RNA sequence: UGCAAAUGAUGCCAAUCUCACGAUGGUCUGCUGAGCCCGGCGCGGGCCUGACGACACUGCCACACGGCUUCACUGAUGCAGGCGA
Dot-bracket structure: ((((........................................................................)))).....